[Rfam]
RNA sequence: ACAAAUAGCUUCUAGGGUUCCGAUCAAAAGUUUUUGUUUUUGAUGUCUGGACCGAGAGAGGCAGCCCACUCUGGCGAACUGCAAGUGGGUUCACGGCGGGAUAAAAACCCGGGAGGA
Numbered sequence: 001a002c003a004a005a006u007a008g009c010u011u012c013u014a015g016g017g018u019u020c021c022g023a024u025c026a027a028a029a030g031u032u033u034u035u036g037u038u039u040u041u042g043a044u045g046u047c048u049g050g051a052c053c054g055a056g057a058g059a060g061g062c063a064g065c066c067c068a069c070u071c072u073g074g075c076g077a078a079c080u081g082c083a084a085g086u087g088g089g090u091u092c093a094c095g096g097c098g099g100g101a102u103a104a105a106a107a108c109c110c111g112g113g114a115g116g117a
Stems, first nucleotide, its partner, number of pairs: 008062005015053002020050002022047001023044008064090007092112001094115001098110003